[Rfam]
Rfam assigns this 151-nucleotide sequence from Shimia aestuarii to the family "FMN riboswitch aptamer (RFN element)". Gene Ontology term of the family: FMN binding. Pairs were carried over by alignment from the consensus structure, which is taken from published work. Taxonomically the source falls in Shimia (Bacteria, Alphaproteobacteria, Rhodobacterales, Roseobacteraceae).

RNA sequence: UGAUGUUCUCAGGGCGGGGUGAAAUUCCCCACCGGCGGUAUUUGGGGGAGACCUCAUGAGCCCGCGAGCGGCCCGACCGAUGGUCGGGUGACAAGCAGAUCCGGUGCGAGGCCGGAGCCGACGGUGAUAGUCCGGAUGGAAGAGAACGUGC
Numbered sequence: 001u002g003a004u005g006u007u008c009u010c011a012g013g014g015c016g017g018g019g020u021g022a023a024a025u026u027c028c029c030c031a032c033c034g035g036c037g038g039u040a041u042u043u044g045g046g047g048g049a050g051a052c053c054u055c056a057u058g059a060g061c062c063c064g065c066g067a068g069c070g071g072c073c074c075g076a077c078c079g080a081u082g083g084u085c086g087g088g089u090g091a092c093a094a095g096c097a098g099a100u101c102c103g104g105u106g107c108g109a110g111g112c113c114g115g116a117g118c119c120g121a122c123g124g125u126g127a128u129a130g131u132c133c134g135g136a137u138g139g140a141a142g143a144g145a146a147c148g149u150g151c
Stems, first nucleotide, its partner, number of pairs: 003149008017029003031131002033120002035065004060118002068096002100116005122134003